[Rfam]
RNA sequence: CUGCGUUGCCUUUCUGGAAGUUUCCUCCCUAAGACUUGGCGGUCCCUGUGAGGGACCGCCAUUUUUCCAUAAUUC
Numbered sequence: 001c002u003g004c005g006u007u008g009c010c011u012u013u014c015u016g017g018a019a020g021u022u023u024c025c026u027c028c029c030u031a032a033g034a035c036u037u038g039g040c041g042g043u044c045c046c047u048g049u050g051a052g053g054g055a056c057c058g059c060c061a062u063u064u065u066u067c068c069a070u071a072a073u074u075c
Base pairs, nucleotide, nucleotide: 010017011016038060039059040058041057042056043055044054045053046052
RNA: Makes More Granules Regulator RNA (mmgR)
Organism: Rhodovastum atsumiense